This 68-nucleotide RNA sequence from Cnephaeus nilssonii belongs to the Rfam family "Small nucleolar RNA SNORD77".
Rfam describes the family as follows. U77 belongs to the C/D family of snoRNAs.
The family is grouped with related families in Rfam's "SNORD77 clan".
Gene Ontology terms of the family: nucleolus and RNA processing.
RNA sequence: GUUCUGUGAUGGCUGCAUCGCUCAGCAGAUUGGCUCCUGUGGAGAGGUACCAUUUGUCUGAUGUGUCU
Numbered sequence: 001g002u003u004c005u006g007u008g009a010u011g012g013c014u015g016c017a018u019c020g021c022u023c024a025g026c027a028g029a030u031u032g033g034c035u036c037c038u039g040u041g042g043a044g045a046g047g048u049a050c051c052a053u054u055u056g057u058c059u060g061a062u063g064u065g066u067c068u
Stems, first nucleotide, its partner, number of pairs: 001066002004063001006038001008036002013028004043055003047051001

The family's RNA type in Rfam is C/D-box small nucleolar RNA.